[Rfam]
This 67-nucleotide RNA sequence from Plutella xylostella belongs to the Rfam family "mir-1000 microRNA precursor family".
A search with the family's covariance model found it, with a score of 67 bits.
Gene Ontology terms of the family: RISC complex, negative regulation of glutamate secretion, neurotransmission and miRNA-mediated post-transcriptional gene silencing.

RNA sequence: UUCCACCAUAUUGUCCUGUCACAGCAGUACGUACCAGUUACUGCUGCGCCGGGACAAAACGGUGGAG
Numbered sequence: 001u002u003c004c005a006c007c008a009u010a011u012u013g014u015c016c017u018g019u020c021a022c023a024g025c026a027g028u029a030c031g032u033a034c035c036a037g038u039u040a041c042u043g044c045u046g047c048g049c050c051g052g053g054a055c056a057a058a059a060c061g062g063u064g065g066a067g
Stems, first nucleotide, its partner, number of pairs: 003065004012056007022046008